[Rfam]
RNA sequence: UUGAACAAGUAGAAGCACCCGCUUCUCGCCUCGUGACUCGCGUUGCCAGGCAGAUACACGUUGCACUUAAUUGUGCAGUAAGGUAAAGUGGGUGAACUUCGGUUCACCCACUUUUUUCUUCGUUG
Number, nucleotide and partner (000 for none) at each position: 001u000002u000003g000004a000005a000006c000007a000008a000009g000010u000011a026012g025013a024014a023015g022016c021017a000018c000019c000020c000021g016022c015023u014024u013025c012026u011027c000028g051029c050030c049031u000032c000033g046034u045035g044036a043037c042038u000039c000040g000041c000042g037043u036044u035045g034046c033047c000048a000049g030050g029051c028052a000053g000054a000055u000056a000057c000058a000059c000060g000061u000062u000063g000064c000065a000066c000067u000068u000069a000070a000071u000072u000073g000074u000075g000076c000077a000078g000079u000080a000081a000082g000083g000084u000085a000086a000087a112088g111089u110090g109091g108092g107093u106094g105095a104096a103097c000098u000099u000100c000101g000102g000103u096104u095105c094106a093107c092108c091109c090110a089111c088112u087113u000114u000115u000116u000117u000118c000119u000120u000121c000122g000123u000124u000125g000

Background: Shown here is a 125-nucleotide RNA from Fructobacillus durionis, a member of the family "Ribosomal protein L20 leader". Its family is annotated with regulation of gene expression in the Gene Ontology. Taxonomically the source falls in Fructobacillus (Bacteria, Bacillati, Bacilli, Lactobacillales).